[Rfam]
RNA sequence: CCAUCAGCGGGAGGCGAUGACACGCGAUCCAUGCCGUGGUCGCCGGGACCGCGCCGAGCCAUUGGCGAGACCGACCCGCGUAUCG
Dot-bracket structure: (.((..(((((.[[[.......[[[[.[[........(((((((..]].]]]]....]]]...)))))..))..)))))..)).)

The record is an 85-nucleotide RNA sequence, which matches "c-di-GMP-II-GAG riboswitch aptamer" in Rfam. It is one of the family's seed sequences.